[Rfam]
RNA: Archaeal large subunit ribosomal RNA, nucleotides 2662 to 2910
RNA sequence: GGUACCUGAUGGGAACGCUCGUAUAGUACGAGAGGAACUACGGGUGGUGGCCACUGGUGUACCGGUCGUCCGAGAGGGCGUUGCCGGGCAGCCACGCCACAUGGGGUAAGAGCUGAACGCAUCUAAGCUCGAAACCCUCCCAAAAAAGAGGUACCUCUGAGACCACUCGUCUAAGACGAGAUCGAUAGACUCGGGGUGUACGCACCGAGGUAACGAGGUGUUUAGCCCGCGAGAACUAACUGGUCGAAG
Numbered sequence: 001g002g003u004a005c006c007u008g009a010u011g012g013g014a015a016c017g018c019u020c021g022u023a024u025a026g027u028a029c030g031a032g033a034g035g036a037a038c039u040a041c042g043g044g045u046g047g048u049g050g051c052c053a054c055u056g057g058u059g060u061a062c063c064g065g066u067c068g069u070c071c072g073a074g075a076g077g078g079c080g081u082u083g084c085c086g087g088g089c090a091g092c093c094a095c096g097c098c099a100c101a102u103g104g105g106g107u108a109a110g111a112g113c114u115g116a117a118c119g120c121a122u123c124u125a126a127g128c129u130c131g132a133a134a135c136c137c138u139c140c141c142a143a144a145a146a147a148g149a150g151g152u153a154c155c156u157c158u159g160a161g162a163c164c165a166c167u168c169g170u171c172u173a174a175g176a177c178g179a180g181a182u183c184g185a186u187a188g189a190c191u192c193g194g195g196g197u198g199u200a201c202g203c204a205c206c207g208a209g210g211u212a213a214c215g216a217g218g219u220g221u222u223u224a225g226c227c228c229g230c231g232a233g234a235a236c237u238a239a240c241u242g243g244u245c246g247a248a249g
Base pairs, nucleotide, nucleotide: 001155002154003153004152005151006150007149010142011141012140013139016046017045018044019043020042021041022040023039047100048099049098050097051096055094056093057092062087063086064085065084066083067080068079069078070077071076103137104136105135110130111129112128113127114126161245162244163243164242166180167179168178169177186238187237188236190233191232192231193230194228195227196226202221203220204219205218206217209214